[Rfam]
RNA sequence: AAGUCUAUCUUGCGCGCGAGCCAAUGGUACUCAGUUGAAACACCAAAGGCGCAAAAAACAUAACUUGAAACUGUGCGGGAUUACGGGCGAGACUCUCUGCUCGUCCCUCCAUCCCCGGGUGUUAUACCAGGCAUGCCGGGGGCCUCGCGCCCUCGGUGCCAUAACAUACCGCGAGUGUGCAGGAUGUGACCCGAAAGAUGGUGAACUAUGCCUGAUCAGGUUGAAGUCAGGGGAAACCCUGAUGGAGGACCGAAGCAGUUCUGACGUGCAAAUCGAUUGUCAGAAUUGGGCAUAGGGGCGAAAGACCAAUCGAACCAUCUAGUAGCUGGUU
Numbered sequence: 001a002a003g004u005c006u007a008u009c010u011u012g013c014g015c016g017c018g019a020g021c022c023a024a025u026g027g028u029a030c031u032c033a034g035u036u037g038a039a040a041c042a043c044c045a046a047a048g049g050c051g052c053a054a055a056a057a058a059c060a061u062a063a064c065u066u067g068a069a070a071c072u073g074u075g076c077g078g079g080a081u082u083a084c085g086g087g088c089g090a091g092a093c094u095c096u097c098u099g100c101u102c103g104u105c106c107c108u109c110c111a112u113c114c115c116c117g118g119g120u121g122u123u124a125u126a127c128c129a130g131g132c133a134u135g136c137c138g139g140g141g142g143c144c145u146c147g148c149g150c151c152c153u154c155g156g157u158g159c160c161a162u163a164a165c166a167u168a169c170c171g172c173g174a175g176u177g178u179g180c181a182g183g184a185u186g187u188g189a190c191c192c193g194a195a196a197g198a199u200g201g202u203g204a205a206c207u208a209u210g211c212c213u214g215a216u217c218a219g220g221u222u223g224a225a226g227u228c229a230g231g232g233g234a235a236a237c238c239c240u241g242a243u244g245g246a247g248g249a250c251c252g253a254a255g256c257a258g259u260u261c262u263g264a265c266g267u268g269c270a271a272a273u274c275g276a277u278u279g280u281c282a283g284a285a286u287u288g289g290g291c292a293u294a295g296g297g298g299c300g301a302a303a304g305a306c307c308a309a310u311c312g313a314a315c316c317a318u319c320u321a322g323u324a325g326c327u328g329g330u331u
Base pairs, nucleotide, nucleotide: 006186007185008184009183010182011181012180013179014178015177016176017175020050021049022048025045026044027043028042054061077115078114079113080112081111085106086105087104088103089102090101091100117170118169119167120166121165122164123163124162128158129157190329191328193326197319198318199317200316201315202314206295207294208293209292210291211290212289213288214287215286216285217283219251220250221249222248226243227242228241229240230239231238232237255280256279257278258277260276261275263274264273297307298306

A member of the RNA family "Eukaryotic large subunit ribosomal RNA" from Culex quinquefasciatus, 331 nucleotides of a longer RNA. It is one of the family's seed sequences. Rfam links the family to the GO terms structural constituent of ribosome and ribosome.